The family of this 85-nucleotide RNA from Medicago truncatula is "MIR2617 microRNA precursor family".
Rfam 15.1 lists 1,174 matches to the family in 2 species.
The base pairs follow the family's consensus structure, which was predicted with RNAalifold.
Taxonomically the source falls in Medicago (Eukaryota, Embryophyta, rosids, Trifolieae).
Nucleotides: 085
Stems, first nucleotide, its partner, number of pairs: 003084017
Number, partner (000 for none) and nucleotide at each position: 001000a002000a003084g004083a005082a006081g007080u008079g009078u010077a011076g012075c013074a014073u015072u016071c017070c018069g019068u020000u021000u022000a023000u024000g025000u026000g027000a028000a029000u030000u031000a032000c033000u034000c035000u036000g037000a038000u039000u040000a041000a042000u043000u044000a045000a046000a047000u048000g049000a050000a051000a052000u053000u054000u055000u056000u057000a058000u059000g060000u061000u062000g063000g064000g065000a066000a067000u068019a069018c070017g071016g072015g073014g074013u075012g076011u077010u078009a079008c080007a081006c082005u083004u084003c085000g